[Rfam]
About this RNA
The family of this 117-nucleotide RNA from Nonomuraea polychroma is "Group II catalytic intron D1-D4-2". The organism belongs to Nonomuraea, within Bacteria. For this family Rfam cites "The ins and outs of group II introns" (Bonen and Vogel, Trends Genet, 2001). The pairing is the family consensus, mapped onto this sequence. Gene Ontology term of the family: Group II intron splicing. Group II introns are found in rRNA, tRNA and mRNA of organelles in fungi, plants and protists, and also in mRNA in bacteria.

RNA sequence: UAAGGUCUGGCCCUUCGGCGUCGCCCUGCGGGGGAGACGUCAAACCGCCCUCAAGCUGCGUUGGCUGAAGACCGUCGUGGUGAGCGUUGAGGAAAAGGCGCACGUGAUGCGUCAGAU
Numbered sequence: 001u002a003a004g005g006u007c008u009g010g011c012c013c014u015u016c017g018g019c020g021u022c023g024c025c026c027u028g029c030g031g032g033g034g035a036g037a038c039g040u041c042a043a044a045c046c047g048c049c050c051u052c053a054a055g056c057u058g059c060g061u062u063g064g065c066u067g068a069a070g071a072c073c074g075u076c077g078u079g080g081u082g083a084g085c086g087u088u089g090a091g092g093a094a095a096a097g098g099c100g101c102a103c104g105u106g107a108u109g110c111g112u113c114a115g116a117u
Stems, first nucleotide, its partner, number of pairs: 002015004017041006024034004048092002051090004055081002058078003062074003097113006